[Rfam]
This 121-nucleotide RNA from Caenorhabditis angaria belongs to the Rfam family "Caenorhabditis snoRNA ceN86". A reference for the family is Jia et al. (2007), "Systematic identification of non-coding RNA 2,2,7-trimethylguanosine cap structures in Caenorhabditis elegans", BMC Mol Biol. The source organism's lineage runs through Eukaryota, Protostomia, Rhabditomorpha, Rhabditoidea and Caenorhabditis. The family has 2 seed sequences and 9 matches in Rfam 15.1.

RNA sequence: GCACAGUUGUUCUAGAGACCUGGAUAAAAUUCCAAGUAGCUAUUUUACUUUGCAAAAUAGAAUAGGCUCUUUAUUCCCGCUUUUAGACUAUUCUGAUUGCGAUGAUCAGAGCAUGACAAAA
Dot-bracket structure: (((..........((.(...(.(.........).).....).))......))).........((.(.((...(((..(((....(((....)))....)))..)))..)).).))......